[Rfam]
RNA sequence: CUAUCUCUUACUUCAACAGUGUUUGGAAGGAAAAG
Number, nucleotide and partner (000 for none) at each position: 001c035002u034003a000004u032005c000006u031007c030008u029009u000010a000011c000012u027013u026014c025015a024016a023017c021018a000019g000020u000021g017022u000023u016024u015025g014026g013027a012028a000029g008030g007031a006032a004033a000034a002035g001